[Rfam]
RNA sequence: UGACGUUAGAGGCAAACCCAUCAAAAGGUGGGGACGCAAAGCUACAGGGUCUAAGGUGCAUACCCGCACUAUGACAGCCUGGCUGCCGAA
Numbered sequence: 001u002g003a004c005g006u007u008a009g010a011g012g013c014a015a016a017c018c019c020a021u022c023a024a025a026a027g028g029u030g031g032g033g034a035c036g037c038a039a040a041g042c043u044a045c046a047g048g049g050u051c052u053a054a055g056g057u058g059c060a061u062a063c064c065c066g067c068a069c070u071a072u073g074a075c076a077g078c079c080u081g082g083c084u085g086c087c088g089a090a
Stems, first nucleotide, its partner, number of pairs: 012037002017032006040084004046080003049075003056069004
This 90-nucleotide RNA sequence from Peptococcaceae bacterium CEB3 belongs to the Rfam family "c-di-GMP-I riboswitch aptamer".
Rfam describes the family as follows. GEMM was predicted in a large-scale screen for bacterial structured RNA regulatory elements.
NCBI's taxonomy places the organism under Bacteria, Bacillota, Clostridia, Eubacteriales, Peptococcaceae.